A member of the RNA family "Bacterial large subunit ribosomal RNA" from uncultured bacterium 164, 587 nucleotides of a longer RNA. Its family is annotated with structural constituent of ribosome and ribosome in the Gene Ontology. Rfam's curators put it in the seed alignment.
RNA sequence: CCCGCAUCUAGACGGAAAGACCCCGUGCACCUUGACUACAACUUGAUAGUGAUUUCGGGCAAACGAUGCGCAGCAUAGGUGGGAGGCUUUGAUGUCAGGCUUUCGGGCUUGGCGGAGCCAUCGGUGAGAUACCACCCUUCGUUUGUUUGGACUCUAACCUCGAGCCGUAAUCCGGCUCAGGGACAUUAUCAGGCGGGUAGUUUGACUGGGGCGGUCGCCUCCUAAAGAGUAACGGAGGCGCUCGAAGGUUGGCUCAGGCUGUUUGGAAAUCAGCCGCAGAGUGUAAACGCAUAAGCCAGCUUGACUGCGAGACAUACACGUCGAGCAGGUACGAAAGUAGGAGUUAGUGAUCCGGCGGUCGCUUAUGGAAGUGCCGUCGCUCAACGGAUAAAAGGUACGCCGGGGAUAACAGGCUGAUCCUGCCCAAGAGUUCACAUCGACGGCAGGGUUUGGCACCUCGAUGUCGGCUCAUCACAUCCUGGGGCUGAAGAAGGUCCCAAGGGUUCGGCUGUUCGCCGAUUAAAGUGGUACGUGAGCUGGGUUCAGAACGUCGCGAGACAGUUCGGUCCCUAUCUGGUGUGGGCGUA
Numbered sequence: 001c002c003c004g005c006a007u008c009u010a011g012a013c014g015g016a017a018a019g020a021c022c023c024c025g026u027g028c029a030c031c032u033u034g035a036c037u038a039c040a041a042c043u044u045g046a047u048a049g050u051g052a053u054u055u056c057g058g059g060c061a062a063a064c065g066a067u068g069c070g071c072a073g074c075a076u077a078g079g080u081g082g083g084a085g086g087c088u089u090u091g092a093u094g095u096c097a098g099g100c101u102u103u104c105g106g107g108c109u110u111g112g113c114g115g116a117g118c119c120a121u122c123g124g125u126g127a128g129a130u131a132c133c134a135c136c137c138u139u140c141g142u143u144u145g146u147u148u149g150g151a152c153u154c155u156a157a158c159c160u161c162g163a164g165c166c167g168u169a170a171u172c173c174g175g176c177u178c179a180g181g182g183a184c185a186u187u188a189u190c191a192g193g194c195g196g197g198u199a200g201u202u203u204g205a206c207u208g209g210g211g212c213g214g215u216c217g218c219c220u221c222c223u224a225a226a227g228a229g230u231a232a233c234g235g236a237g238g239c240g241c242u243c244g245a246a247g248g249u250u251g252g253c254u255c256a257g258g259c260u261g262u263u264u265g266g267a268a269a270u271c272a273g274c275c276g277c278a279g280a281g282u283g284u285a286a287a288c289g290c291a292u293a294a295g296c297c298a299g300c301u302u303g304a305c306u307g308c309g310a311g312a313c314a315u316a317c318a319c320g321u322c323g324a325g326c327a328g329g330u331a332c333g334a335a336a337g338u339a340g341g342a343g344u345u346a347g348u349g350a351u352c353c354g355g356c357g358g359u360c361g362c363u364u365a366u367g368g369a370a371g372u373g374c375c376g377u378c379g380c381u382c383a384a385c386g387g388a389u390a391a392a393a394g395g396u397a398c399g400c401c402g403g404g405g406a407u408a409a410c411a412g413g414c415u416g417a418u419c420c421u422g423c424c425c426a427a428g429a430g431u432u433c434a435c436a437u438c439g440a441c442g443g444c445a446g447g448g449u450u451u452g453g454c455a456c457c458u459c460g461a462u463g464u465c466g467g468c469u470c471a472u473c474a475c476a477u478c479c480u481g482g483g484g485c486u487g488a489a490g491a492a493g494g495u496c497c498c499a500a501g502g503g504u505u506c507g508g509c510u511g512u513u514c515g516c517c518g519a520u521u522a523a524a525g526u527g528g529u530a531c532g533u534g535a536g537c538u539g540g541g542u543u544c545a546g547a548a549c550g551u552c553g554c555g556a557g558a559c560a561g562u563u564c565g566g567u568c569c570c571u572a573u574c575u576g577g578u579g580u581g582g583g584c585g586u587a
Stems, first nucleotide, its partner, number of pairs: 001583008010575003014570002022404004027400002029396005035201004042193007051154002054151013068137001078136005085119003094113008158181003162178006204216004217239006240385001242342002248300006254280002257275005281290002305328004311322003330339003353379007361372002413454003417451001418448007428438002465540001466538004470532001471529005478503002481498006505519005546564004550559003